[Rfam]
RNA: tRNA
RNA sequence: GGUGGCAUGGCCGAGCGGUAAGGCGGGGAACUGCGAAUCCUUUUUCCCCAGUUCAAAUCUGGGUGUCGCCU
Numbered sequence: 001g002g003u004g005g006c007a008u009g010g011c012c013g014a015g016c017g018g019u020a021a022g023g024c025g026g027g028g029a030a031c032u033g034c035g036a037a038u039c040c041u042u043u044u045u046c047c048c049c050a051g052u053u054c055a056a057a058u059c060u061g062g063g064u065g066u067c068g069c070c071u
Stems, first nucleotide, its partner, number of pairs: 001070007010024003026042003030038001047063005